Shown here is a 128-nucleotide RNA from Methylobacterium oryzihabitans, a member of the family "TPP riboswitch aptamer (THI element)". Pairs were carried over by alignment from the consensus structure, which is taken from published work. A search with the family's covariance model found it, with a score of 61 bits.
RNA sequence: GUCCGCUCCCAGGGGAGCCUCGCGAGGAGGCUGAGAUUCCGCCGGCACGGACGCGGUCCGGGCGACGCGGUGACCCUAUGAACCUGAUCCGGGUCAUGCCGGCGUAGGGAUGCGGGACCGCCGGCCGU
Numbered sequence: 001g002u003c004c005g006c007u008c009c010c011a012g013g014g015g016a017g018c019c020u021c022g023c024g025a026g027g028a029g030g031c032u033g034a035g036a037u038u039c040c041g042c043c044g045g046c047a048c049g050g051a052c053g054c055g056g057u058c059c060g061g062g063c064g065a066c067g068c069g070g071u072g073a074c075c076c077u078a079u080g081a082a083c084c085u086g087a088u089c090c091g092g093g094u095c096a097u098g099c100c101g102g103c104g105u106a107g108g109g110a111u112g113c114g115g116g117a118c119c120g121c122c123g124g125c126c127g128u
Stems, first nucleotide, its partner, number of pairs: 006116003010112001011077004016071001017031005039070004083108004089102004